[Rfam]
Background: The family of this 142-nucleotide sequence from Segnochrobactrum spirostomi is "Alphaproteobacterial sRNA ar45". Taxonomically the source falls in Segnochrobactrum (Bacteria, Pseudomonadota, Alphaproteobacteria, Segnochrobactraceae).
RNA sequence: GCCCAAUUUCGCACGUGCCUGUGGUCGCGUGCCGGUCAGGUCGGAAACCCCGGCCUGGGCAGACCGGUGACCGGAAUAAACCGGGUCUAAGCCGACGCUCGGUCGGCGGACGCGACUUGAAGCAACGACGUAGCGGGCUUUU
Numbered sequence: 001g002c003c004c005a006a007u008u009u010c011g012c013a014c015g016u017g018c019c020u021g022u023g024g025u026c027g028c029g030u031g032c033c034g035g036u037c038a039g040g041u042c043g044g045a046a047a048c049c050c051c052g053g054c055c056u057g058g059g060c061a062g063a064c065c066g067g068u069g070a071c072c073g074g075a076a077u078a079a080a081c082c083g084g085g086u087c088u089a090a091g092c093c094g095a096c097g098c099u100c101g102g103u104c105g106g107c108g109g110a111c112g113c114g115a116c117u118u119g120a121a122g123c124a125a126c127g128a129c130g131u132a133g134c135g136g137g138c139u140u141u142u
Stems, first nucleotide, its partner, number of pairs: 001138004009128003016124003023117008031054005081109003087102002090099003

It scores 66 bits against the family's covariance model.